RNA sequence: GGGAGGUGUGAUCUCACACUCGCUGGGAGGUGUGCUAUCGUCUUCCCUGGGAGGUGUGAUCCUGUUCUUCCU
Numbered sequence: 001g002g003g004a005g006g007u008g009u010g011a012u013c014u015c016a017c018a019c020u021c022g023c024u025g026g027g028a029g030g031u032g033u034g035c036u037a038u039c040g041u042c043u044u045c046c047c048u049g050g051g052a053g054g055u056g057u058g059a060u061c062c063u064g065u066u067c068u069u070c071c072u
Stems, first nucleotide, its partner, number of pairs: 001071005014059005020053001023050005029044001032041003
Annotation:
The record is a 72-nucleotide sequence from Homo sapiens, which matches "mir-3689 microRNA precursor family" in Rfam. The family's consensus secondary structure was predicted with RNAalifold.